chrB-a RNA: a 77-nucleotide sequence from Sphingomonas lycopersici. The family has 163 seed sequences and 347 matches in Rfam 15.1. Taxonomically the source falls in Sphingomonas (Bacteria, Pseudomonadati, Pseudomonadota, Sphingomonadaceae). The base pairs follow the family's consensus structure, which is taken from published work.
[Rfam]
RNA sequence: UUGAUGGGGACCGCGAUCUCCCAACGAGCCGCCAGGUUGAAGCAUCGCGUCCUGCCUUGUAGAAGGGACGCUUGAUG
Numbered sequence: 001u002u003g004a005u006g007g008g009g010a011c012c013g014c015g016a017u018c019u020c021c022c023a024a025c026g027a028g029c030c031g032c033c034a035g036g037u038u039g040a041a042g043c044a045u046c047g048c049g050u051c052c053u054g055c056c057u058u059g060u061a062g063a064a065g066g067g068a069c070g071c072u073u074g075a076u077g
Base pairs, nucleotide, nucleotide: 005024007022008021009020010019047071048070049069050068051067052066
A search with the family's covariance model found it, with a score of 58 bits.